RNA sequence: UUGAUUUAAAUCAUUGUGGAUCUACACUUUGAAAAUAAAACCCACUAAAAGUGAUGGGACAAACAUUAAUUUCAUCCAA
Numbered sequence: 001u002u003g004a005u006u007u008a009a010a011u012c013a014u015u016g017u018g019g020a021u022c023u024a025c026a027c028u029u030u031g032a033a034a035a036u037a038a039a040a041c042c043c044a045c046u047a048a049a050a051g052u053g054a055u056g057g058g059a060c061a062a063a064c065a066u067u068a069a070u071u072u073c074a075u076c077c078a079a
Stems, first nucleotide, its partner, number of pairs: 001079003006074001008072004013067001015065003022057003025053006
Annotation
The family of this 79-nucleotide sequence from Medicago truncatula is "MIR5269 microRNA precursor family". The match comes from Rfam's covariance-model search (65 bits). Rfam 15.1 lists 389 matches to the family in 6 species.